[Rfam]
RNA sequence: CUCUUAUCCAGAGUGGUGGAGGGACUGGCCCGAUGAAACCCGGCAACCUCGGUAAUUAAUUUACUGGAUGGUGCCAAAUCCUGCAGAGACUAUGGUUUCUGAGAGAUGAGAG
Number, nucleotide and partner (000 for none) at each position: 001c112002u111003c110004u109005u108006a107007u106008c105009c000010a000011g000012a000013g041014u000015g040016g039017u038018g000019g000020a000021g031022g030023g029024a000025c083026u000027g081028g080029c023030c022031c021032g000033a000034u000035g000036a000037a000038a017039c016040c015041c013042g075043g074044c073045a072046a000047c071048c070049u067050c066051g065052g064053u063054a062055a000056u000057u000058a000059a000060u000061u000062u054063a053064c052065u051066g050067g049068a000069u000070g048071g047072u045073g044074c043075c042076a000077a000078a000079u104080c028081c027082u000083g025084c101085a100086g099087a098088g097089a096090c000091u000092a000093u000094g000095g000096u089097u088098u087099c086100u085101g084102a000103g000104a079105g008106a007107u006108g005109a004110g003111a002112g001
The record is a 112-nucleotide RNA from Seinonella peptonophila, which matches "SAM riboswitch aptamer (S box leader)" in Rfam.
Gene Ontology term of the family: regulation of gene expression.